A member of the RNA family "DUF3800-VI RNA", 52 nucleotides long. Rfam's curators put it in the seed alignment.
RNA sequence: CGAUUGAGAGGGCUGCAAUUGUGGUCCGUUGCAACUAUGUUGCGCUUGGUCG
Numbered sequence: 001c002g003a004u005u006g007a008g009a010g011g012g013c014u015g016c017a018a019u020u021g022u023g024g025u026c027c028g029u030u031g032c033a034a035c036u037a038u039g040u041u042g043c044g045c046u047u048g049g050u051c052g
Stems, first nucleotide, its partner, number of pairs: 001052008010027007030044005